[Rfam]
A member of the RNA family "Iron response element I" from Sciurus vulgaris, 35 nucleotides long. A search with the family's covariance model found it, with a score of 35 bits. The literature on the family includes a 1987 paper in Science by Hentze et al., "Identification of the iron-responsive element for the translational regulation of human ferritin mRNA". The base pairs follow the family's consensus structure, which is taken from published work. The family's RNA type in Rfam is cis-regulatory element.
RNA sequence: UUGUCUCUUGCUUCAACAGUGUUUGGAAGGCACAG
Numbered sequence: 001u002u003g004u005c006u007c008u009u010g011c012u013u014c015a016a017c018a019g020u021g022u023u024u025g026g027a028a029g030g031c032a033c034a035g
Stems, first nucleotide, its partner, number of pairs: 001035004007030002012027005017021001